[Rfam]
RNA sequence: UGGCGCCCAACAGUGAGGCGUGGAUAAGGGGGAAUCACGAGGGAAGAGGCAUUUAAUGGUUCCACCGACCAAAGCAGAAGUCAGUUCAAGAAGGAUUACCAUGGGAGCCUGCCGAGCCGUUCUUAAAGGAACAGUAACACCUAACUAUGGGACAAGAAUUAAGUAAGCAUAAAGUUUUUGUUAAGCAAUUAAAAGAAGCUUUAAAGACACAGGGAGUAAAGGUUAAGAGUAAAGAUCUUUUUAAGUUUUUUGACCUUAUUAAGGACACCUGUCUGU
Numbered sequence: 001u002g003g004c005g006c007c008c009a010a011c012a013g014u015g016a017g018g019c020g021u022g023g024a025u026a027a028g029g030g031g032g033a034a035u036c037a038c039g040a041g042g043g044a045a046g047a048g049g050c051a052u053u054u055a056a057u058g059g060u061u062c063c064a065c066c067g068a069c070c071a072a073a074g075c076a077g078a079a080g081u082c083a084g085u086u087c088a089a090g091a092a093g094g095a096u097u098a099c100c101a102u103g104g105g106a107g108c109c110u111g112c113c114g115a116g117c118c119g120u121u122c123u124u125a126a127a128g129g130a131a132c133a134g135u136a137a138c139a140c141c142u143a144a145c146u147a148u149g150g151g152a153c154a155a156g157a158a159u160u161a162a163g164u165a166a167g168c169a170u171a172a173a174g175u176u177u178u179u180g181u182u183a184a185g186c187a188a189u190u191a192a193a194a195g196a197a198g199c200u201u202u203a204a205a206g207a208c209a210c211a212g213g214g215a216g217u218a219a220a221g222g223u224u225a226a227g228a229g230u231a232a233a234g235a236u237c238u239u240u241u242u243a244a245g246u247u248u249u250u251u252g253a254c255c256u257u258a259u260u261a262a263g264g265a266c267a268c269c270u271g272u273c274u275g276u
Stems, first nucleotide, its partner, number of pairs: 006030003015025001035049002038046001097119001100116001102114003135155001140151004160203003163199002210252008220238005261276001263274004